Shown here is a 108-nucleotide RNA sequence from Plutella xylostella, a member of the family "mir-8517 microRNA precursor family".
Gene Ontology terms of the family: RISC complex and miRNA-mediated post-transcriptional gene silencing.
The base pairs follow the family's consensus structure, which was predicted with RNAalifold.
It scores 81 bits against the family's covariance model.
[Rfam]
RNA sequence: UUACAGAACGUUUUAGCUAUUGAACUAUUUUGUCCCUCUCUGUCAAAAAACAUAUUGUUAAUUGAAAGAAAGGGACAAAACAGUUCAAUAGAUAAAACGUUCUAUAAC
Numbered sequence: 001u002u003a004c005a006g007a008a009c010g011u012u013u014u015a016g017c018u019a020u021u022g023a024a025c026u027a028u029u030u031u032g033u034c035c036c037u038c039u040c041u042g043u044c045a046a047a048a049a050a051c052a053u054a055u056u057g058u059u060a061a062u063u064g065a066a067a068g069a070a071a072g073g074g075a076c077a078a079a080a081c082a083g084u085u086c087a088a089u090a091g092a093u094a095a096a097a098c099g100u101u102c103u104a105u106a107a108c
Stems, first nucleotide, its partner, number of pairs: 001107003005103002011097005017091010028080001029069003033065002049059004